[Rfam]
RNA sequence: AAAUAUGAACCGCUGAAUUUCACGACACGUGGAAGCGGGGGAACCACUGGGACCGGACCGUAAGCCGGACUAUGGGGUGAAUCCCAAGGUAACUUGGGUAAGGCGACUCUCACGCCCGAAUCCGACAGCUAACCUCGUAAGCGAAUCUAGGGAGCAACA
Numbered sequence: 001a002a003a004u005a006u007g008a009a010c011c012g013c014u015g016a017a018u019u020u021c022a023c024g025a026c027a028c029g030u031g032g033a034a035g036c037g038g039g040g041g042a043a044c045c046a047c048u049g050g051g052a053c054c055g056g057a058c059c060g061u062a063a064g065c066c067g068g069a070c071u072a073u074g075g076g077g078u079g080a081a082u083c084c085c086a087a088g089g090u091a092a093c094u095u096g097g098g099u100a101a102g103g104c105g106a107c108u109c110u111c112a113c114g115c116c117c118g119a120a121u122c123c124g125a126c127a128g129c130u131a132a133c134c135u136c137g138u139a140a141g142c143g144a145a146u147c148u149a150g151g152g153a154g155c156a157a158c159a
Base pairs, nucleotide, nucleotide: 011143012142013141014140018034019033020032021031022030035138036137037136038135039134040133045074046073075123076122077121083098084097085096086095102116103115104114